Annotation
A member of the RNA family "Pseudomon-Rho RNA" from Pseudomonas aeruginosa, 101 nucleotides long. Rfam classes the family as a cis-regulatory element. The family's consensus secondary structure is taken from published work.

RNA sequence: UUCGGGUUCGCGACGUUUUUUCCGUCGCCUUCUGCAUGCCGUCCCGGACGCACUUCCUACUCGAACUUUCUAGCGCUCCUGUCGCCCCCUUGCGACACGGC
Number, nucleotide and partner (000 for none) at each position: 001u000002u000003c000004g000005g000006g000007u000008u000009c000010g028011c027012g026013a025014c024015g023016u000017u000018u000019u000020u000021u000022c000023c015024g014025u013026c012027g011028c010029c000030u000031u000032c000033u000034g000035c000036a000037u000038g101039c100040c099041g098042u097043c000044c000045c094046g093047g000048a000049c000050g000051c000052a000053c000054u000055u000056c000057c000058u000059a000060c000061u000062c000063g000064a000065a000066c000067u000068u000069u000070c000071u000072a000073g085074c084075g083076c000077u081078c000079c000080u000081g077082u000083c075084g074085c073086c000087c000088c000089c000090u000091u000092g000093c046094g045095a000096c000097a042098c041099g040100g039101c038